[Rfam]
RNA sequence: AUGAAAGGUGACUUCGCUAAGUGCGUUCACGUCCUGUGAACAACGCCAAGUACCUACGUCGUGUAGG
Numbered sequence: 001a002u003g004a005a006a007g008g009u010g011a012c013u014u015c016g017c018u019a020a021g022u023g024c025g026u027u028c029a030c031g032u033c034c035u036g037u038g039a040a041c042a043a044c045g046c047c048a049a050g051u052a053c054c055u056a057c058g059u060c061g062u063g064u065a066g067g
Stems, first nucleotide, its partner, number of pairs: 011051004016046002026040005053067005
The family of this 67-nucleotide RNA from Halalkalibacter nanhaiisediminis is "Bacillaceae-1 RNA".
It is annotated as a small RNA.
Pairs were carried over by alignment from the consensus structure, which is taken from published work.
A search with the family's covariance model found it, with a score of 58 bits.
The family has 95 seed sequences and 5,721 matches in Rfam 15.1.